Overview
Shown here is a 114-nucleotide sequence, a member of the family "drum RNA". Firmicutes, Bacteroidetes (1 example), Proteobacteria (2 examples), Spirochaetes (2 examples). Rfam's curators put it in the seed alignment. Pairs were carried over by alignment from the consensus structure, which is taken from published work.
RNA sequence: AAGCGCUGAAGUAAGGGAGUGUGCCGGUGGCAUUGCCUUAUGGAGCUUUCGGGAGGGGUUGUGAAGAGAAACCUCAAGCCGGCGUAGGCGCAAAGCCGAAAGAAAAUGCUCCGA
Numbered sequence: 001a002a003g004c005g006c007u008g009a010a011g012u013a014a015g016g017g018a019g020u021g022u023g024c025c026g027g028u029g030g031c032a033u034u035g036c037c038u039u040a041u042g043g044a045g046c047u048u049u050c051g052g053g054a055g056g057g058g059u060u061g062u063g064a065a066g067a068g069a070a071a072c073c074u075c076a077a078g079c080c081g082g083c084g085u086a087g088g089c090g091c092a093a094a095g096c097c098g099a100a101a102g103a104a105a106a107u108g109c110u111c112c113g114a
Stems, first nucleotide, its partner, number of pairs: 001048004011041006018034005024082004063109001065107001087097003
Rfam classes the family as a small RNA.